[Rfam]
The family of this 112-nucleotide sequence from Pelosinus sp. UFO1 is "TPP riboswitch aptamer (THI element)". A search with the family's covariance model found it, with a score of 61 bits. Pairs were carried over by alignment from the consensus structure, which is taken from published work.
RNA sequence: GAAUAAGGCAAGGGGGGCUGGAGAGGCUGGCUGAGAUAUAGAUCUGAUAAAAUCUAUGACCCUGUAACCUGAUCUGGGUAAUGCCAGCGGAGGGAUAGCGAUAGAGUUUUUG
Numbered sequence: 001g002a003a004u005a006a007g008g009c010a011a012g013g014g015g016g017g018c019u020g021g022a023g024a025g026g027c028u029g030g031c032u033g034a035g036a037u038a039u040a041g042a043u044c045u046g047a048u049a050a051a052a053u054c055u056a057u058g059a060c061c062c063u064g065u066a067a068c069c070u071g072a073u074c075u076g077g078g079u080a081a082u083g084c085c086a087g088c089g090g091a092g093g094g095a096u097a098g099c100g101a102u103a104g105a106g107u108u109u110u111u112g
Base pairs, nucleotide, nucleotide: 007099010096011063012062013061014060017031018030019029020028021027038057039056040055041054042053068093069092070091074087075086076085077084